Shown here is a 115-nucleotide RNA sequence from Streptomyces boluensis, a member of the family "SAM (S-adenosyl methionine) riboswitch aptamer". Rfam describes the family as follows. SAM-IV is a mRNA element that regulates gene expression via direct sensing of S-adenosylmethionine (SAM or AdoMet). Rfam links the family to the GO terms S-adenosylmethionine metabolic process and regulation of gene expression. The family's consensus secondary structure is taken from published work.
[Rfam]
RNA sequence: GGUUAUGAGUGUCAGCGUCAAGCCCUGGCUUGCUGACCGGCAACCCUCCUGCGCGGCGGGGUGCUCCAGGUGACGACCAGGUGGAGCCCGAUCCCGGGGUUCACAAGCGCGACGG
Dot-bracket structure: ((((....(.((((((....((......)).)))))))(((..(((.((.....))..))).))).........))))..(((((.((((....)))).)))))...........